[Rfam]
RNA: A. fumigatus sRNA Afu_254
Organism: Talaromyces islandicus
RNA sequence: CUCUACAAUUUAUCAAGACCUUGAAAUUUUUAUAUUUUCGACUUUUCCACCCACAUAAAUCGAAAUGUCUCCCUGCUCCUGCAACUGCUGCUCCGGAAGCUGCGCCGGCUGCUCAUGCUCCUCUUGCAGCGUAUGUACUUUCUC
Numbered sequence: 001c002u003c004u005a006c007a008a009u010u011u012a013u014c015a016a017g018a019c020c021u022u023g024a025a026a027u028u029u030u031u032a033u034a035u036u037u038u039c040g041a042c043u044u045u046u047c048c049a050c051c052c053a054c055a056u057a058a059a060u061c062g063a064a065a066u067g068u069c070u071c072c073c074u075g076c077u078c079c080u081g082c083a084a085c086u087g088c089u090g091c092u093c094c095g096g097a098a099g100c101u102g103c104g105c106c107g108g109c110u111g112c113u114c115a116u117g118c119u120c121c122u123c124u125u126g127c128a129g130c131g132u133a134u135g136u137a138c139u140u141u142c143u144c
Stems, first nucleotide, its partner, number of pairs: 074098001076096002081091003102127003111118002